[Rfam]
Nucleotides: 350
Stems, first nucleotide, its partner, number of pairs: 001313003009310001011197004016191001018190003022084001024082004030077002032073009045063007088184003092179003099173007106150001110146008121132003158165002202243006211237002216232004254309006262287010291298002315342003324335004
Number, partner (000 for none) and nucleotide at each position: 001313g002312g003311c004000g005000u006000a007000a008000a009310g010000c011197g012196c013195g014194u015000c016191u017000a018190g019189g020188c021000g022084g023000c024082a025081a026080g027079g028000a029000a030077a031076g032073u033072c034071u035070g036069a037068u038067g039066u040065g041000a042000a043000a044000a045063u046062g047061c048060g049059g050058g051057g052000c053000u054000c055000a056000a057051c058050u059049c060048c061047g062046u063045a064000u065040u066039g067038c068037g069036u070035u071034g072033g073032a074000a075000a076031c077030u078000g079027c080026c081025u082024u083000a084022c085000u086000a087000g088184a089183g090182u091000a092179c093178u094177g095000g096000a097000g098000a099173g100172g101171u102170a103169g104168g105167c106150g107000g108000a109000a110146c111145u112144a113143c114142a115141a116140g117139u118000g119000u120000a121132g122131a123130g124000g125000u126000g127000a128000a129000a130123u131122u132121c133000g134000u135000a136000g137000a138000u139117a140116u141115u142114u143113g144112u145111a146110g147000g148000a149000a150106u151000g152000c153000c154000g155000a156000u157000g158165g159164g160000g161000a162000a163000g164159c165158c166000a167105g168104c169103c170102u171101a172100c173099u174000g175000g176000a177094c178093a179092g180000a181000u182090a183089c184088u185000g186000a187000c188020g189019c190018u191016a192000a193000a194014g195013c196012g197011c198000g199000a200000a201000a202243g203242c204241g205240u206239g207238g208000g209000u210000a211237g212236c213000a214000a215000a216232c217231a218230g219229g220000a221000u222000u223000a224000g225000a226000u227000a228000c229219c230218c231217u232216g233000g234000u235000a236212g237211u238207c239206c240205a241204c242203g243202c244000u245000g246000u247000a248000a249000a250000c251000g252000a253000u254309g255308a256307u257306u258305a259304c260000u261000a262287g263286g264285u265284g266283u267282u268281g269280g270279g271278g272000g273000u274000c275000a276000a277000a278271c279270c280269u281268c282267a283266g284265c285264g286263c287262c288000c289000a290000a291298g292297c293000u294000a295000a296000c297292g298291c299000g300000a301000u302000a303000a304259g305258u306257a307256a308255u309254c310009c311003g312002c313001c314000u315342g316341g317340g318000g319000a320000g321000u322000a323000c324335g325334u326333a327332c328000g329000c330000a331000a332327g333326u334325a335324u336000g337000a338000a339000a340317c341316u342315c343000a344000a345000a346000g347000g348000a349000a350000u
The record is a 350-nucleotide part of an RNA from Fusobacterium gonidiaformans, which matches "Bacterial small subunit ribosomal RNA" in Rfam. For this family Rfam cites "Crystal structure of the ribosome at 5.5 A resolution" (Yusupov et al., Science, 2001). Gene Ontology terms of the family: structural constituent of ribosome and ribosome. The family's consensus secondary structure is taken from published work. NCBI's taxonomy places the organism under Bacteria, Fusobacteriia, Fusobacteriales, Fusobacteriaceae, Fusobacterium gonidiaformans.